[Rfam]
RNA sequence: UAUGGCGGGGGCAGGAGUCAGGGCCAGCAACCUUGAACUGUUUCUUGAGGCUGGUGUGAAGGAAGUUCACAGCUCUGCCGGGCAGUGGAUCCCAUCGGCAAUGCGUUACCGUAAUCCGGGGCUCUCCAUGUCAACAGACCCGGAUGCGGAUGAAUACUCGCGCUAUGCCGUCGACGCAACCGCCGUUGCGCAAAUGAAGGCGAUUAUCGCGCGCCGCGCCGAAUAACCGAUUUUUACCGCGCAUCAUGUCGCCCAAUGUGAUGUUUGCUUGUACCAGGCCCCUGCCAAUUCAACAGGGGCCUUUUUUU
Number, nucleotide and partner (000 for none) at each position: 001u000002a000003u276004g275005g274006c000007g000008g000009g270010g269011g268012c267013a266014g265015g264016a042017g041018u040019c000020a000021g000022g038023g000024c000025c035026a034027g033028c000029a000030a000031c000032c000033u027034u026035g025036a000037a000038c022039u000040g018041u017042u016043u000044c000045u082046u081047g000048a000049g079050g078051c077052u000053g076054g075055u000056g073057u072058g000059a000060a000061g068062g067063a000064a000065g000066u000067u062068c061069a000070c000071a000072g057073c056074u000075c054076u053077g051078c050079c049080g000081g046082g045083c000084a000085g129086u128087g127088g126089a123090u000091c120092c119093c118094a000095u000096c000097g000098g116099c000100a000101a115102u114103g112104c111105g110106u000107u000108a000109c000110c105111g104112u103113a000114a102115u101116c098117c000118g093119g092120g091121g000122c000123u089124c000125u000126c088127c087128a086129u085130g000131u000132c000133a000134a000135c000136a000137g000138a000139c000140c000141c000142g000143g000144a000145u162146g161147c160148g159149g158150a000151u000152g000153a000154a000155u000156a000157c000158u149159c148160g147161c146162g145163c000164u000165a000166u263167g262168c000169c260170g259171u258172c000173g000174a000175c000176g000177c000178a000179a000180c251181c000182g249183c248184c000185g245186u000187u243188g242189c241190g000191c000192a000193a000194a000195u239196g238197a000198a000199g235200g234201c000202g232203a231204u230205u229206a000207u000208c000209g000210c000211g000212c000213g000214c000215c000216g000217c000218g000219c000220c000221g000222a000223a000224u000225a000226a000227c000228c000229g205230a204231u203232u202233u000234u200235u199236a000237c000238c196239g195240c000241g189242c188243a187244u000245c185246a000247u000248g183249u182250c000251g180252c000253c000254c000255a000256a000257u000258g171259u170260g169261a000262u167263g166264u015265u014266u013267g012268c011269u010270u009271g000272u000273a000274c005275c004276a003277g301278g300279c299280c298281c297282c296283u295284g294285c000286c000287a000288a000289u000290u000291c000292a000293a000294c284295a283296g282297g281298g280299g279300c278301c277302u000303u000304u000305u000306u000307u000308u000
Overview: The record is a 308-nucleotide RNA sequence from Enterobacteriaceae bacterium strain FGI 57, which matches "MicL sRNA" in Rfam. For this family Rfam cites "MicL, a new sigmaE-dependent sRNA, combats envelope stress by repressing synthesis of Lpp, the major outer membrane lipoprotein" (Guo et al., Genes Dev, 2014). It scores 93 bits against the family's covariance model. About the family: mRNA-interfering complementary RNA regulator of Lpp. Transcription factor sigma E dependant sRNA. Together with MicA and RybB it allows sigma E to repress the synthesis of all abundant outer membrane proteins in response to stress.